[Rfam]
RNA sequence: GCCUUAUCAAGAGUGGUGGAGGGAACGGCCCAAUGAAACCCGGCAACCUGCGGAUGCAAGGUGCCAAAUCCGGCGAAGGAAUCGAAAGAUGAGGG
Numbered sequence: 001g002c003c004u005u006a007u008c009a010a011g012a013g014u015g016g017u018g019g020a021g022g023g024a025a026c027g028g029c030c031c032a033a034u035g036a037a038a039c040c041c042g043g044c045a046a047c048c049u050g051c052g053g054a055u056g057c058a059a060g061g062u063g064c065c066a067a068a069u070c071c072g073g074c075g076a077a078g079g080a081a082u083c084g085a086a087a088g089a090u091g092a093g094g095g
Base pairs, nucleotide, nucleotide: 002094003093004092005091006090007089008088013041015040016039017038021031022030023029026072027071028070042065043064044063045062047061048060049058050057051056069087074084075083076082
The record is a 95-nucleotide RNA from Firmicutes bacterium CAG:124, which matches "SAM riboswitch aptamer (S box leader)" in Rfam.
The source organism's lineage runs through Bacteria, Bacillati and Bacillota.
Rfam's curators write: The SAM riboswitch is found upstream of a number of genes which code for proteins involved in methionine or cysteine biosynthesis in Gram-positive bacteria. The SAM riboswitch acts at the level of transcription termination control. The predicted structure consists of a complex stem-loop region followed by a single stem loop terminator region.